[Rfam]
The record is a 493-nucleotide RNA from Drosophila willistoni, which matches "Arthropod 7SK RNA" in Rfam.

RNA sequence: GGAAGUGUAUUCUGUGAUUGCUCUGUGCAUUUGAUCGAUAUGCGGAUAGUUCUAUCUGUCUGUUUAUCAGAUCUGCUCAGUGCCGACCCUCCGUCACACACACCUGUUGUUUCCCAGUAAUUUGCCUGGCAUUGCUGUGGCGACAUGCUUUCCGAUUGGCUUUCCGAUGCCUUUGCCCAUCGACGACGGGUCGUAUGGGCAAGAGACGCACGGUCAUGCAAAUAGCUUUCCCACCCACAAACCCACUACUUCCGGCUCCGUCUCGCGAAUUUCGAUCAAUCUCUGAUUGGAAUGCGUAUAGAUUGGAGUUGGGGGCGGAGGGCCGCGGGGGCGCCGCUAGAUGUUGAAGCCAACGGCAGUUGCCCAAGUCAGCCAUUUUCAAAAUUUCUUGGUUAAGUAACUUUGUAGCUUAGCUUCGGAUUUUCGUAAUAUAUUUGCUGUUCAGAACACUUCCAUGUACGCGGCAUUGCCGAGCAAUUUGCCCAUUCUUUUG
Dot-bracket structure: ((((((((.....(((((....(((.(((...((((((((..((((((........))))))..)))).))))))).)))............))))).............................................................................................................................................................................................................................................................................................................................................................))))))))........((((((((...)))))..)))..........

Clan: 7SK clan. It is annotated as a non-coding RNA gene. The source organism's lineage runs through Eukaryota, Eumetazoa, Pterygota, Muscomorpha and Sophophora. Rfam's curators put it in the seed alignment.